[Rfam]
Nucleotides: 107
Stems, first nucleotide, its partner, number of pairs: 002078001007026007041102002043099002045094007059083001061081002065077001069076002
Number, partner (000 for none) and nucleotide at each position: 001000a002078c003000u004000g005000a006000a007026g008025u009024a010023u011022u012021u013020a014000u015000a016000g017000c018000a019000c020013u021012a022011a023010a024009u025008a026007c027000a028000u029000a030000u031000a032000g033000c034000c035000g036000c037000c038000a039000u040000c041102g042101g043099u044098u045094g046093u047092a048091u049090u050089g051088a052000a053000u054000g055000u056000a057000g058000c059083u060000c061081g062080g063000a064000g065077u066000a067000c068000a069076g070075g071000a072000u073000g074000a075070c076069c077065a078002g079000c080062c081061c082000g083059a084000u085000a086000a087000g088051u089050c090049a091048a092047u093046a094045c095000g096000u097000a098044a099043a100000u101042c102041c103000u104000c105000u106000u107000a
cow-rumen-2 RNA: a 107-nucleotide RNA sequence. The family's RNA type in Rfam is small RNA. Pairs were carried over by alignment from the consensus structure, which is taken from published work.